[Rfam]
RNA sequence: UAUCGGCAAUAUUCCGCCGAAUGCCAGCCAAGGCCCGUCCCCCGCCUUUCUGGCAACUGCGCGACAGCCUAUUCCCCUCUCCGGGUUGCGCGCGACUAUGAAAAGACCGCCGUGGCUCCCCUCCGCCACGGCGGCACUUU
Number, nucleotide and partner (000 for none) at each position: 001u000002a000003u000004c000005g000006g000007c000008a000009a000010u000011a000012u000013u000014c000015c000016g000017c000018c000019g000020a000021a000022u055023g054024c053025c052026a051027g050028c000029c000030a000031a000032g046033g045034c044035c000036c000037g000038u000039c000040c000041c000042c000043c000044g034045c033046c032047u000048u000049u000050c027051u026052g025053g024054c023055a022056a000057c000058u000059g093060c092061g091062c090063g089064a000065c088066a087067g086068c085069c084070u000071a000072u000073u000074c000075c000076c000077c000078u000079c000080u000081c000082c000083g000084g069085g068086u067087u066088g065089c063090g062091c061092g060093c059094g000095a000096c000097u000098a000099u000100g000101a000102a000103a000104a000105g000106a000107c134108c133109g132110c131111c130112g129113u128114g127115g126116c125117u000118c000119c000120c000121c000122u000123c000124c000125g116126c115127c114128a113129c112130g111131g110132c109133g108134g107135c000136a000137c000138u000139u000140u000
RNA: Alphaproteobacterial sRNA ar7